[Rfam]
RNA sequence: AGCACAAAUGAUGAGUUUUGGGACUUAAUACUGAUCUGGUGAUGUCUUCUGCAAGUUCUGAUGUGU
Numbered sequence: 001a002g003c004a005c006a007a008a009u010g011a012u013g014a015g016u017u018u019u020g021g022g023a024c025u026u027a028a029u030a031c032u033g034a035u036c037u038g039g040u041g042a043u044g045u046c047u048u049c050u051g052c053a054a055g056u057u058c059u060g061a062u063g064u065g066u
Stems, first nucleotide, its partner, number of pairs: 002066005
Dot-bracket structure: .(((((.......................................................)))))
The record is a 66-nucleotide RNA from Thamnophis sirtalis, which matches "Small nucleolar RNA SNORD82" in Rfam. snoRNA U82 or Z25 is found in both humans and mice. The match comes from Rfam's covariance-model search (48 bits). Rfam links the family to the GO terms nucleolus and RNA processing. It is annotated as a C/D-box small nucleolar RNA. On this family, see Galardi et al., Mol Cell Biol 2002: "Purified box C/D snoRNPs are able to reproduce site-specific 2'-O-methylation of target RNA in vitro". The family's consensus secondary structure was predicted with PFOLD.